Rfam assigns this 143-nucleotide sequence from Jaculus jaculus to the family "Small nucleolar RNA SNORA15". Rfam classes the family as an H/ACA-box small nucleolar RNA. The family's consensus secondary structure was predicted with RNAfold.
Nucleotides: 143
Stems, first nucleotide, its partner, number of pairs: 002054002006050001014042006068136002071132007084121005090115006
Number, partner (000 for none) and nucleotide at each position: 001000a002054c003053a004000c005000u006050g007000c008000u009000g010000a011000a012000u013000c014042c015041u016040g017039u018038g019037u020000u021000c022000u023000u024000u025000c026000a027000u028000c029000a030000g031000u032000a033000a034000u035000u036000u037019a038018c039017a040016c041015a042014g043000c044000u045000a046000a047000a048000c049000a050006c051000c052000a053003u054002g055000c056000a057000a058000a059000a060000g061000c062000c063000a064000a065000g066000u067000c068136u069135u070000c071132c072131u073130u074129u075128u076127a077126a078000a079000a080000u081000g082000g083000a084121u085120g086119a087118u088117g089000a090115u091114a092113u093112a094111c095110u096000u097000g098000g099000g100000u101000u102000u103000u104000u105000u106000a107000a108000a109000u110095g111094g112093u113092g114091u115090g116000a117088c118087a119086u120085c121084a122000u123000u124000c125000a126077u127076u128075a129074a130073a131072a132071g133000a134000a135069a136068g137000u138000a139000c140000a141000c142000u143000a